[Rfam]
RNA sequence: UUGCACACUGAACACCCAAGCGUGCUCUGUAGUACUCUUGGCUCUAACUCUGUGCUAGAAUAAUCUGUACUUUACCUCUGCAUUGGAAGGAGUCCCUUUCCUUUUACAUGUAUUCAGAAGGACAGUACACUU
Numbered sequence: 001u002u003g004c005a006c007a008c009u010g011a012a013c014a015c016c017c018a019a020g021c022g023u024g025c026u027c028u029g030u031a032g033u034a035c036u037c038u039u040g041g042c043u044c045u046a047a048c049u050c051u052g053u054g055c056u057a058g059a060a061u062a063a064u065c066u067g068u069a070c071u072u073u074a075c076c077u078c079u080g081c082a083u084u085g086g087a088a089g090g091a092g093u094c095c096c097u098u099u100c101c102u103u104u105u106a107c108a109u110g111u112a113u114u115c116a117g118a119a120g121g122a123c124a125g126u127a128c129a130c131u132u
Stems, first nucleotide, its partner, number of pairs: 003055005010049001014045001016041005022035001024033003057071002060068003077118004081110003085105007
Dot-bracket structure: ..(((((..(...(.(((((.(.(((....))).).)))))...)...).))))).((.(((...))).)).....(((((((.(((((((.......)))))))..)))....))))..............
Shown here is a 132-nucleotide RNA from Sphenodon punctatus, a member of the family "Small nucleolar RNA SNORA22".
The family's consensus secondary structure was predicted with RNAfold.
ACA22 is a member of the H/ACA class of snoRNA that guide the sites of modification of uridines to pseudouridines.
Rfam 15.1 lists 883 matches to the family in 606 species.
The family's RNA type in Rfam is H/ACA-box small nucleolar RNA.
It scores 116 bits against the family's covariance model.